RNA sequence: GAUUCCCUUGCAGCAAACAAAUACAUACUUUCAAUUGAACCUACAAAUGAAUAUAAAAAUGAUAGGAAUCUG
Numbered sequence: 001g002a003u004u005c006c007c008u009u010g011c012a013g014c015a016a017a018c019a020a021a022u023a024c025a026u027a028c029u030u031u032c033a034a035u036u037g038a039a040c041c042u043a044c045a046a047a048u049g050a051a052u053a054u055a056a057a058a059a060u061g062a063u064a065g066g067a068a069u070c071u072g
Base pairs, nucleotide, nucleotide: 001070002069003068004067005066006065
RNA: Class I RNA from Dictyostelium